[Rfam]
RNA sequence: GAGGGAAGGCCCCUCAAAGCCGCCAUAUAGGUGACGGCUUCAAACCACCGUAAGCUACUGCUGUGGUCAAAAGCCAUGGUAGUGAGCGUUACGGCAAAAGGCGAAGCAAGACUUCGUCAGGU
Numbered sequence: 001g002a003g004g005g006a007a008g009g010c011c012c013c014u015c016a017a018a019g020c021c022g023c024c025a026u027a028u029a030g031g032u033g034a035c036g037g038c039u040u041c042a043a044a045c046c047a048c049c050g051u052a053a054g055c056u057a058c059u060g061c062u063g064u065g066g067u068c069a070a071a072a073g074c075c076a077u078g079g080u081a082g083u084g085a086g087c088g089u090u091a092c093g094g095c096a097a098a099a100g101g102c103g104a105a106g107c108a109a110g111a112c113u114u115c116g117u118c119a120g121g122u
Base pairs, nucleotide, nucleotide: 001015002014003013004012005011017040018039019038020037021036024033025032026031046121048094049093050092051091052090053089054083055082057080058079059078064076065075066074067073100118101117102116103115104114105113
Overview:
This 122-nucleotide sequence from Heliorestis acidaminivorans belongs to the Rfam family "Group II catalytic intron D1-D4-2". From the family's description: Group II introns are found in rRNA, tRNA and mRNA of organelles in fungi, plants and protists, and also in mRNA in bacteria. A search with the family's covariance model found it, with a score of 101 bits. The family has 144 seed sequences and 1,231 matches in Rfam 15.1. The base pairs follow the family's consensus structure. For this family Rfam cites "The ins and outs of group II introns" (Bonen and Vogel, Trends Genet, 2001).